[Rfam]
RNA sequence: GGCCUUUGUGUUGCCCAUUCAUUCCUGUCCAGAAUGGAUGUGGUGUCAAAAAAGGCAAACAGGAAUUCGUGCUCAGACUGGAUCAGGGAGCUGGUUAUGAACCUUUCUCCUCUGUUAUUGCAAGGACAAAA
Numbered sequence: 001g002g003c004c005u006u007u008g009u010g011u012u013g014c015c016c017a018u019u020c021a022u023u024c025c026u027g028u029c030c031a032g033a034a035u036g037g038a039u040g041u042g043g044u045g046u047c048a049a050a051a052a053a054g055g056c057a058a059a060c061a062g063g064a065a066u067u068c069g070u071g072c073u074c075a076g077a078c079u080g081g082a083u084c085a086g087g088g089a090g091c092u093g094g095u096u097a098u099g100a101a102c103c104u105u106u107c108u109c110c111u112c113u114g115u116u117a118u119u120g121c122a123a124g125g126a127c128a129a130a131a
Base pairs, nucleotide, nucleotide: 002056003055004054005053006052007051009048010047012045013044014043015042016040017039018038019037020036021035022034023033068124070122071121074120075119076118082116084114085113086112087111088109089108093104094103
Dot-bracket structure: .((((((.((.((((((((((((.........)))))))).)))).))..))))))...........(.((..(((.....(.((((((...((........))...)).)))).).))))).).......
A member of the RNA family "Small nucleolar RNA SNORA13" from Buphagus erythrorhynchus, 131 nucleotides long. The family's RNA type in Rfam is H/ACA-box small nucleolar RNA. About the family: ACA13 is a member of the H/ACA class of snoRNA that guide the sites of modification of uridines to pseudouridines. Its family is annotated with nucleolus and RNA processing in the Gene Ontology. The match comes from Rfam's covariance-model search (75 bits).